[Rfam]
RNA: Small nucleolar RNA SNORD17
RNA sequence: GUGAUGUGAUGAUGAAGUUUAUCCAUUCUCUGAGUGCAGCGACGCUGCCCUCCUGCAGCACCCGGGUUCCUGUUCUAGGAGCCGGGUGUUGCGCAGCCUCCAGAGACCCUGCAGUGUCCCAGUGUCCUGCUGGGGGCUGUGGCCGGCUGCCUGCAGGAGGGGGUGUCCUGGCCGGGCUGGAGCCCCCUUUUUGGGGGCUGCAUCCCCACCGAGACGAGGGAUGCUGUCUGAUCAC
Dot-bracket structure: .........((((...((....((.(((.((..((...((.(.((..((((((((((.(((((((.(((((.....))))))))))))....((((((........((..((....((((((((...)))))))))).).)...)))))).))))))).)))..))..).)).(((.((.(.((((.......)))).).)).))).))..))..))))).....))...)))).
Numbered sequence: 001g002u003g004a005u006g007u008g009a010u011g012a013u014g015a016a017g018u019u020u021a022u023c024c025a026u027u028c029u030c031u032g033a034g035u036g037c038a039g040c041g042a043c044g045c046u047g048c049c050c051u052c053c054u055g056c057a058g059c060a061c062c063c064g065g066g067u068u069c070c071u072g073u074u075c076u077a078g079g080a081g082c083c084g085g086g087u088g089u090u091g092c093g094c095a096g097c098c099u100c101c102a103g104a105g106a107c108c109c110u111g112c113a114g115u116g117u118c119c120c121a122g123u124g125u126c127c128u129g130c131u132g133g134g135g136g137c138u139g140u141g142g143c144c145g146g147c148u149g150c151c152u153g154c155a156g157g158a159g160g161g162g163g164u165g166u167c168c169u170g171g172c173c174g175g176g177c178u179g180g181a182g183c184c185c186c187c188u189u190u191u192u193g194g195g196g197g198c199u200g201c202a203u204c205c206c207c208a209c210c211g212a213g214a215c216g217a218g219g220g221a222u223g224c225u226g227u228c229u230g231a232u233c234a235c
Stems, first nucleotide, its partner, number of pairs: 010234004017227002023220002026218003030213002034209002039172002042169001044166002048162003051158007059088007067081005093150006107141001108139001111137002117135008174206003178202002181199001183197004